[Rfam]
RNA sequence: CUGCAUCCACUGCUAGUCCUUGAACAAUUUGUGGUUGUUCUUCAGGUUUGCACUAGGAUGCAAAAGAAAAUACUCUCUGGGCUUUCUGUCUUUGUGGCUGUCCAGAUUGAAUUGGGGAGUACAUAU
Number, nucleotide and partner (000 for none) at each position: 001c000002u062003g061004c060005a059006u058007c057008c056009a000010c000011u052012g051013c000014u050015a049016g048017u000018c046019c045020u000021u000022g040023a039024a038025c037026a036027a035028u034029u000030u000031g000032u000033g000034g028035u027036u026037g025038u024039u023040c022041u000042u000043c000044a000045g019046g018047u000048u016049u015050g014051c012052a011053c000054u000055a000056g008057g007058a006059u005060g004061c003062a002063a000064a000065a000066g000067a000068a000069a000070a000071u000072a000073c000074u118075c117076u116077c115078u114079g113080g000081g000082c109083u000084u000085u106086c105087u104088g103089u000090c096091u000092u000093u000094g000095u000096g090097g000098c000099u000100g000101u000102c000103c088104a087105g086106a085107u000108u000109g082110a000111a000112u000113u079114g078115g077116g076117g075118a074119g000120u000121a000122c000123a000124u000125a000126u000